[Rfam]
RNA sequence: ACCGGUCCUCGGUAGUGGCUCCCGAGGCGUCGUACGAGACGACGGCCGGGUGCUUCGAUCGAAGACCGGA
Numbered sequence: 001a002c003c004g005g006u007c008c009u010c011g012g013u014a015g016u017g018g019c020u021c022c023c024g025a026g027g028c029g030u031c032g033u034a035c036g037a038g039a040c041g042a043c044g045g046c047c048g049g050g051u052g053c054u055u056c057g058a059u060c061g062a063a064g065a066c067c068g069g070a
Base pairs, nucleotide, nucleotide: 002069003068004067005066006065007064009062010061011060012059013058017054018053019052021050022049023048024047028044029043030042031041032040033039